[Rfam]
RNA sequence: UAAUAGCCCUGAUAGAAGCGGCAUCCUGACAUUGCGAAAAGAACAACAAUUUUAGAUUGCUUCGUUCCUCGCAAUGACAGAUACAGCGAAUAGCAGGAAAUAGC
Number, nucleotide and partner (000 for none) at each position: 001u000002a000003a000004u000005a000006g000007c000008c000009c096010u095011g094012a000013u092014a091015g000016a000017a000018g087019c086020g000021g000022c000023a082024u081025c080026c000027u000028g078029a000030c076031a075032u074033u073034g072035c071036g070037a069038a000039a000040a000041g000042a000043a000044c000045a000046a000047c000048a000049a000050u000051u000052u000053u000054a000055g000056a000057u000058u000059g000060c000061u000062u000063c000064g000065u000066u000067c000068c000069u037070c036071g035072c034073a033074a032075u031076g030077a000078c028079a000080g025081a024082u023083a000084c000085a000086g019087c018088g000089a000090a000091u014092a013093g000094c011095a010096g009097g000098a000099a000100a000101u000102a000103g000104c000